[Rfam]
RNA sequence: AUGGACUACUAGGGGUGCCAGUUGGUGGCUGAGAGAAAAACAAAUUCGUUUUUUAACCCUAACGACCUGAUCUGGAUCAUACCAGCGUAGGGAAGUAGCGGAUUCACUCU
Numbered sequence: 001a002u003g004g005a006c007u008a009c010u011a012g013g014g015g016u017g018c019c020a021g022u023u024g025g026u027g028g029c030u031g032a033g034a035g036a037a038a039a040a041c042a043a044a045u046u047c048g049u050u051u052u053u054u055a056a057c058c059c060u061a062a063c064g065a066c067c068u069g070a071u072c073u074g075g076a077u078c079a080u081a082c083c084a085g086c087g088u089a090g091g092g093a094a095g096u097a098g099c100g101g102a103u104u105c106a107c108u109c110u
Base pairs, nucleotide, nucleotide: 006098007097008096009095010094011060012059013058014057017029018028019027020026036053037052038051039050040049066091067090068089069088072085073084074083075082
RNA: TPP riboswitch aptamer (THI element)
Organism: Niallia circulans